Shown here is a 128-nucleotide sequence from Burkholderiales bacterium PBB6, a member of the family "ZMP/ZTP riboswitch aptamer (pfl RNA motif)". Rfam links the family to the GO terms one-carbon metabolic process and regulation of purine nucleotide biosynthetic process. It scores 56 bits against the family's covariance model. The base pairs follow the family's consensus structure, which is taken from published work. The organism belongs to Burkholderiales, within Bacteria.
RNA sequence: GAGCCCACGCGCGACUGGCGAUAACGCGGCGGCCCGAACAAGGGCUGUCGUCGAGGUGGAUCACCACCGGGAAGCGCGGGGCUGCUGAACAAGCAGCCUUAUCAAAGCCGUUCGCCUGGGCACCCUGU
Numbered sequence: 001g002a003g004c005c006c007a008c009g010c011g012c013g014a015c016u017g018g019c020g021a022u023a024a025c026g027c028g029g030c031g032g033c034c035c036g037a038a039c040a041a042g043g044g045c046u047g048u049c050g051u052c053g054a055g056g057u058g059g060a061u062c063a064c065c066a067c068c069g070g071g072a073a074g075c076g077c078g079g080g081g082c083u084g085c086u087g088a089a090c091a092a093g094c095a096g097c098c099u100u101a102u103c104a105a106a107g108c109c110g111u112u113c114g115c116c117u118g119g120g121c122a123c124c125c126u127g128u
Stems, first nucleotide, its partner, number of pairs: 003083001005081002008078005015071002017116005056067004107121003